[Rfam]
RNA sequence: UACAAUGUCUUUUAUUAUAGACACCCAGAGUCACGGGGCACCGUACAAGGACUACUCUUGUAGUGGGUUUUUGCAUGUGGGUGUAUAGUUAUAAACUACGGACCAUGUUUCGAUAUGGUUUGCCGUGCUCGCGGUAGUCUUAGAACAACCGGUCUUCCCUCCAAUGCUGGUGACACGUUCCGUGUGUCUUUUAUUCGGUGGCAGGGCCGUACAAUU
Numbered sequence: 001u002a003c004a005a006u007g008u009c010u011u012u013u014a015u016u017a018u019a020g021a022c023a024c025c026c027a028g029a030g031u032c033a034c035g036g037g038g039c040a041c042c043g044u045a046c047a048a049g050g051a052c053u054a055c056u057c058u059u060g061u062a063g064u065g066g067g068u069u070u071u072u073g074c075a076u077g078u079g080g081g082u083g084u085a086u087a088g089u090u091a092u093a094a095a096c097u098a099c100g101g102a103c104c105a106u107g108u109u110u111c112g113a114u115a116u117g118g119u120u121u122g123c124c125g126u127g128c129u130c131g132c133g134g135u136a137g138u139c140u141u142a143g144a145a146c147a148a149c150c151g152g153u154c155u156u157c158c159c160u161c162c163a164a165u166g167c168u169g170g171u172g173a174c175a176c177g178u179u180c181c182g183u184g185u186g187u188c189u190u191u192u193a194u195u196c197g198g199u200g201g202c203a204g205g206g207c208c209g210u211a212c213a214a215u216u
Stems, first nucleotide, its partner, number of pairs: 019140004025134002033126004039083004046073006052063004086098005099122010151208004156203001158201002161198002172188006
RNA: Small nucleolar RNA snR11
Organism: Henningerozyma blattae